[Rfam]
RNA sequence: UUUCCUGUUAGACUUCUGGCUAGAGUCCACUAAUCCUCUGGUACCUGAUCUGGCCAAAGCCUGACUAUAAC
Numbered sequence: 001u002u003u004c005c006u007g008u009u010a011g012a013c014u015u016c017u018g019g020c021u022a023g024a025g026u027c028c029a030c031u032a033a034u035c036c037u038c039u040g041g042u043a044c045c046u047g048a049u050c051u052g053g054c055c056a057a058a059g060c061c062u063g064a065c066u067a068u069a070a071c
Stems, first nucleotide, its partner, number of pairs: 007065003011061001013059002017056008027041003
Rfam assigns this 71-nucleotide sequence from Rattus norvegicus to the family "mir-344 microRNA precursor family". It scores 55 bits against the family's covariance model. The literature on the family includes a 2010 paper in Genes Dev by Chiang et al., "Mammalian microRNAs: experimental evaluation of novel and previously annotated genes".